A member of the RNA family "Molybdenum/Tungsten riboswitch aptamer (Moco RNA motif)" from Flavonifractor sp. An135, 121 nucleotides long. The organism belongs to Flavonifractor, within Bacteria. Pairs were carried over by alignment from the consensus structure, which is taken from published work. A search with the family's covariance model found it, with a score of 71 bits.
RNA sequence: GCGUCCCAAAAACUUCGAGUCCGUCCGCCUAAAGCCCUUUGGGCCACGGCGGCGGACCAACGGGUCGGUCCGGAAACAGGCCGGCCUACCGAUUUUGUAAAGGAGUUUUCCACAUGAAAAA
Numbered sequence: 001g002c003g004u005c006c007c008a009a010a011a012a013c014u015u016c017g018a019g020u021c022c023g024u025c026c027g028c029c030u031a032a033a034g035c036c037c038u039u040u041g042g043g044c045c046a047c048g049g050c051g052g053c054g055g056a057c058c059a060a061c062g063g064g065u066c067g068g069u070c071c072g073g074a075a076a077c078a079g080g081c082c083g084g085c086c087u088a089c090c091g092a093u094u095u096u097g098u099a100a101a102g103g104a105g106u107u108u109u110c111c112a113c114a115u116g117a118a119a120a121a
Stems, first nucleotide, its partner, number of pairs: 003115002011107006019057007027050003034044003062087009072077001088098002